A member of the RNA family "PyrR binding site" from Streptococcus massiliensis, 118 nucleotides long. Rfam describes the family as follows. This family represents the PyrR binding site and terminator structure. This RNA structure is found upstream of a variety of genes involved in pyrimidine biosynthesis and transport. The family has 41 seed sequences and 1,498 matches in Rfam 15.1. By type it is a cis-regulatory element. Lineage of the source: Bacteria > Bacillati > Bacillota > Streptococcaceae > Streptococcus. The family's consensus secondary structure is taken from published work.
[Rfam]
RNA sequence: AAUUCCUUUAAAAUUGUCCUGUGAGACAGUCAAGGAGUUAACAGUUAAAAGACUAGUUUAGUGUGGUGCUAUGCUUGUAUUUUCUGGAACCUCCUUGUUUCAAGGAGGUUUUUCUUAU
Numbered sequence: 001a002a003u004u005c006c007u008u009u010a011a012a013a014u015u016g017u018c019c020u021g022u023g024a025g026a027c028a029g030u031c032a033a034g035g036a037g038u039u040a041a042c043a044g045u046u047a048a049a050a051g052a053c054u055a056g057u058u059u060a061g062u063g064u065g066g067u068g069c070u071a072u073g074c075u076u077g078u079a080u081u082u083u084c085u086g087g088a089a090c091c092u093c094c095u096u097g098u099u100u101c102a103a104g105g106a107g108g109u110u111u112u113u114c115u116u117a118u
Stems, first nucleotide, its partner, number of pairs: 003037006013030006049080001052078002055075003059071003086112012